[Rfam]
RNA sequence: CAAUACCAUUGACCUAAGUUUUAAUAAAAACACGGGGAAACCAGUAACAUUGGGGUGAAUCGUAUUUAUACGUAGGUUAUGCCUUUACCGAACCCGUCAGCUAACCCCGCCGGUAAUAAGGAGAUGAUUU
Numbered sequence: 001c002a003a004u005a006c007c008a009u010u011g012a013c014c015u016a017a018g019u020u021u022u023a024a025u026a027a028a029a030a031c032a033c034g035g036g037g038a039a040a041c042c043a044g045u046a047a048c049a050u051u052g053g054g055g056u057g058a059a060u061c062g063u064a065u066u067u068a069u070a071c072g073u074a075g076g077u078u079a080u081g082c083c084u085u086u087a088c089c090g091a092a093c094c095c096g097u098c099a100g101c102u103a104a105c106c107c108c109g110c111c112g113g114u115a116a117u118a119a120g121g122a123g124a125u126g127a128u129u130u
Base pairs, nucleotide, nucleotide: 012114013113014112018031019030020029021028022027033109034108035107036106037105042052043051053095054094055093061072062071063070064069075089076088077087
Dot-bracket structure: ...........(((...(((((....))))).(((((....((.......))(((.....((((....))))..(((.........)))...))).........)))))..)))................